[Rfam]
RNA sequence: GGAAGAUCGUCGUUUCCGGUGAAGCGGCAGGACUUCAAAUCCUGUUGAGGCUGCCAGCAGUCUCGGGUAGGUUCAACUCCUACGAUCUUCC
Numbered sequence: 001g002g003a004a005g006a007u008c009g010u011c012g013u014u015u016c017c018g019g020u021g022a023a024g025c026g027g028c029a030g031g032a033c034u035u036c037a038a039a040u041c042c043u044g045u046u047g048a049g050g051c052u053g054c055c056a057g058c059a060g061u062c063u064c065g066g067g068u069a070g071g072u073u074c075a076a077c078u079c080c081u082a083c084g085a086u087c088u089u090c091c
Base pairs, nucleotide, nucleotide: 001091002090003089004088005087006086007085008084009083011026012025013024014023015022016021027045028044029043030042031041032040047064048063049062050061051060068082069081070080071079
This 91-nucleotide RNA from Aggregatibacter segnis belongs to the Rfam family "Selenocysteine transfer RNA". Taxonomically the source falls in Aggregatibacter segnis (Bacteria, Gammaproteobacteria, Pasteurellaceae, Aggregatibacter). For this family Rfam cites "tRNAscan-SE: a program for improved detection of transfer RNA genes in genomic sequence" (Lowe and Eddy, Nucleic Acids Res, 1997). It scores 82 bits against the family's covariance model.